Notes:
Shown here is an 86-nucleotide sequence from Peptoclostridium litorale, a member of the family "c-di-GMP-I riboswitch aptamer". It scores 83 bits against the family's covariance model.

RNA sequence: UUACGAUAAUAGCAAAUUUAUCGAAAGGUAAAGACGCAAAGCUAUGGGUCUAAGGAAUUCCAUUCUAUGAUUGCCAGGUUGCCGAA
Numbered sequence: 001u002u003a004c005g006a007u008a009a010u011a012g013c014a015a016a017u018u019u020a021u022c023g024a025a026a027g028g029u030a031a032a033g034a035c036g037c038a039a040a041g042c043u044a045u046g047g048g049u050c051u052a053a054g055g056a057a058u059u060c061c062a063u064u065c066u067a068u069g070a071u072u073g074c075c076a077g078g079u080u081g082c083c084g085a086a
Base pairs, nucleotide, nucleotide: 012037013036017032018031019030020029021028022027040080041079042078043077045076046075047074048071049070050069055065056064057063058062